[Rfam]
RNA sequence: CCCUGUAUUCGAAAGUUAUCAUGGGCUGCCUGUGCCCUGGUCAUUGGUAGUGCAGGGAAAGGAACCGCUGAAAGCGUAUCCCCGUGUUUGGAGGGUCCACUUCUGUCCUUGCCAAACCCUGGAGCUUUCCCACA
Numbered sequence: 001c002c003c004u005g006u007a008u009u010c011g012a013a014a015g016u017u018a019u020c021a022u023g024g025g026c027u028g029c030c031u032g033u034g035c036c037c038u039g040g041u042c043a044u045u046g047g048u049a050g051u052g053c054a055g056g057g058a059a060a061g062g063a064a065c066c067g068c069u070g071a072a073a074g075c076g077u078a079u080c081c082c083c084g085u086g087u088u089u090g091g092a093g094g095g096u097c098c099a100c101u102u103c104u105g106u107c108c109u110u111g112c113c114a115a116a117c118c119c120u121g122g123a124g125c126u127u128u129c130c131c132a133c134a
Base pairs, nucleotide, nucleotide: 001057002056003055004054005053006052007051008050009049014045015044016043018041019040020039021038023037024036025035026034067131070129071128072127073126074125075124086117087116088115089114090113092110093109094108095107
Rfam assigns this 134-nucleotide RNA from Marmota marmota to the family "Small nucleolar RNA SNORA71".
A search with the family's covariance model found it, with a score of 140 bits.
Taxonomically the source falls in Marmota marmota (Eukaryota, Eumetazoa, Chordata, Xerinae).
The members of this family belong to the H/ACA class of snoRNAs which bind a number of proteins (including dyskerin, Gar1p and Nop10p) to form snoRNP complexes. This class of snoRNAs are thought to guide the sites of modification of uridines to pseudouridines by forming direct base pairing interactions with substrate RNAs. This family includes U71 (SNORA71), ACA39 (SNORA39) and ACA60 (SNORA60). U71 and ACA60 are predicted to guide the pseudouridylation of U406 and U1004 in 18S rRNA respectively.
The family's RNA type in Rfam is H/ACA-box small nucleolar RNA.